[Rfam]
RNA sequence: GUGAGGCGCGUCUAGGGUUCCGCCGGUUCGCCGGGCCUGGUCCGAGAGACGCAAGCGGCUGCGCAGCGACGCCGGCCGUUCCACGGCGGGACAAAAGCCCGGGAGGC
Numbered sequence: 001g002u003g004a005g006g007c008g009c010g011u012c013u014a015g016g017g018u019u020c021c022g023c024c025g026g027u028u029c030g031c032c033g034g035g036c037c038u039g040g041u042c043c044g045a046g047a048g049a050c051g052c053a054a055g056c057g058g059c060u061g062c063g064c065a066g067c068g069a070c071g072c073c074g075g076c077c078g079u080u081c082c083a084c085g086g087c088g089g090g091a092c093a094a095a096a097g098c099c100c101g102g103g104a105g106g107c
Stems, first nucleotide, its partner, number of pairs: 008052005015043002020040002022037001023034004054080008082102001084105001088100003
The family of this 107-nucleotide RNA from Mycolicibacterium rhodesiae is "Guanidine-I riboswitch aptamer".